[Rfam]
Nucleotides: 124
Base pairs, nucleotide, nucleotide: 007040008039009038011036014034015033016032017031044076045075046074047073048072049071050070051069052068053067087119088118089117090116091115092114093113094112095111096110097109
Number, partner (000 for none) and nucleotide at each position: 001000g002000g003000a004000a005000u006000u007040c008039g009038g010000g011036g012000c013000c014034g015033c016032a017031c018000a019000c020000u021000c022000c023000u024000c025000c026000u027000c028000c029000c030000a031017g032016u033015g034014c035000a036011c037000u038009c039008c040007g041000a042000u043000a044076g045075a046074u047073u048072g049071a050070c051069g052068a053067c054000a055000c056000u057000c058000c059000u060000c061000c062000u063000c064000c065000c066000a067053g068052u069051c070050g071049u072048c073047a074046a075045u076044c077000a078000c079000c080000a081000c082000a083000a084000a085000u086000g087119a088118c089117g090116c091115c092114c093113g094112c095111c096110g097109c098000a099000u100000c101000c102000u103000c104000c105000u106000c107000c108000c109097g110096c111095g112094g113093u114092g115091g116090g117089c118088g119087u120000u121000a122000u123000u124000u